The family of this 136-nucleotide sequence from Candidatus Methanoperedens nitratireducens is "Group II catalytic intron D1-D4-7". The source organism's lineage runs through Archaea, Methanobacteriota, Methanosarcinales, ANME-2 cluster and Candidatus Methanoperedens. Rfam links the family to the GO term Group II intron splicing. From the family's description: Group II introns are found in rRNA, tRNA and mRNA of organelles in fungi, plants and protists, and also in mRNA in bacteria. On this family, see Bonen and Vogel, Trends Genet 2001: "The ins and outs of group II introns". Pairs were carried over by alignment from the consensus structure. A search with the family's covariance model found it, with a score of 57 bits.
[Rfam]
RNA sequence: UACCCCUUCCAUCUGGGGUAAUCUUACCGGGAUGUGCUUUUGCAGUAAUGCAGAGGUGCAAAGCUCCUGGGACAAUGUGAAGACAUCUAAAAAUCCAAUUUAGACAAUUUGCUAAGAUAAGGAUGUCAUGGAGAAG
Numbered sequence: 001u002a003c004c005c006c007u008u009c010c011a012u013c014u015g016g017g018g019u020a021a022u023c024u025u026a027c028c029g030g031g032a033u034g035u036g037c038u039u040u041u042g043c044a045g046u047a048a049u050g051c052a053g054a055g056g057u058g059c060a061a062a063g064c065u066c067c068u069g070g071g072a073c074a075a076u077g078u079g080a081a082g083a084c085a086u087c088u089a090a091a092a093a094u095c096c097a098a099u100u101u102a103g104a105c106a107a108u109u110u111g112c113u114a115a116g117a118u119a120a121g122g123a124u125g126u127c128a129u130g131g132a133g134a135a136g
Stems, first nucleotide, its partner, number of pairs: 002019005028069005033060012086104006109116002